[Rfam]
RNA sequence: UGGUGGUGAUGUCUAAACUCACGAUGGUCUGCAGAGCCCCCCGUGGUGAAGGGGGACUGCUGAAAAUGCCAGUCUGGCAAUGCUGAACCAUAAAA
Numbered sequence: 001u002g003g004u005g006g007u008g009a010u011g012u013c014u015a016a017a018c019u020c021a022c023g024a025u026g027g028u029c030u031g032c033a034g035a036g037c038c039c040c041c042c043g044u045g046g047u048g049a050a051g052g053g054g055g056a057c058u059g060c061u062g063a064a065a066a067u068g069c070c071a072g073u074c075u076g077g078c079a080a081u082g083c084u085g086a087a088c089c090a091u092a093a094a095a
Base pairs, nucleotide, nucleotide: 001090002089003088004087
Background:
Rfam assigns this 95-nucleotide sequence from Gopherus evgoodei to the family "Small nucleolar RNA SNORD35". NCBI's taxonomy places the organism under Eukaryota, Eumetazoa, Dipnotetrapodomorpha, Testudinoidea, Gopherus. The family is grouped with related families in Rfam's "SNORD35 clan". The literature on the family includes a 1996 paper in J Mol Biol by Nicoloso et al., "Intron-encoded, antisense small nucleolar RNAs: the characterization of nine novel species points to their direct role as guides for the 2'-O-ribose methylation of rRNAs". From the family's description: U35 is a C/D box snoRNA located in intron 6 of ribosomal protein L13A and intron 3 of ribosomal protein S11 in humans and at homologous positions in mouse and chicken ribosomal protein genes. Rfam classes the family as a C/D-box small nucleolar RNA.